[Rfam]
The family of this 132-nucleotide RNA sequence from Chinchilla lanigera is "Small nucleolar RNA SNORA17". Gene Ontology terms of the family: nucleolus and RNA processing. About the family: snoRNA ACA 17 belongs to the H/ACA family of snoRNAs and is predicted to guide pseudouridylation of the 28S rRNA at positions U4659 and U4598. It shares the same host gene together with ACA43. NB This family has a high threshold value to exclude a large number of closely related sequences that do not appear to have conserved H and ACA boxes, and may be pseudogenes. A search with the family's covariance model found it, with a score of 117 bits. The family's consensus secondary structure was predicted with RNAalifold. On this family, see Ofengand and Bakin, J Mol Biol 1997: "Mapping to nucleotide resolution of pseudouridine residues in large subunit ribosomal RNAs from representative eukaryotes, prokaryotes, archaebacteria, mitochondria and chloroplasts".
RNA sequence: CCUUCCCCUCCAGGUGUUGCAGGUGUGGCUGCUGUGUCACAUCUGCAUCACUAGGUGGCAGAGAGAAUCGAGGCUAUGUCUACGCUCAGGGUUCCGACCCGUGAAUGCCUGAAUGAUUAGUAACCUGACACG
Numbered sequence: 001c002c003u004u005c006c007c008c009u010c011c012a013g014g015u016g017u018u019g020c021a022g023g024u025g026u027g028g029c030u031g032c033u034g035u036g037u038c039a040c041a042u043c044u045g046c047a048u049c050a051c052u053a054g055g056u057g058g059c060a061g062a063g064a065g066a067a068u069c070g071a072g073g074c075u076a077u078g079u080c081u082a083c084g085c086u087c088a089g090g091g092u093u094c095c096g097a098c099c100c101g102u103g104a105a106u107g108c109c110u111g112a113a114u115g116a117u118u119a120g121u122a123a124c125c126u127g128a129c130a131c132g
Base pairs, nucleotide, nucleotide: 002061003060005058006057007055008054009053013049014048015047019046020045021044022043024041025040026039027038028037029036071126072125073124075122076121077120083115084114086112087111088110089109091106092105093104094103
Dot-bracket structure: .((.(((((...(((...((((.((((((......)))))).)))))))...))).)).)).........(((.(((.....((.((((.((((........))))..)))).))....))).)))......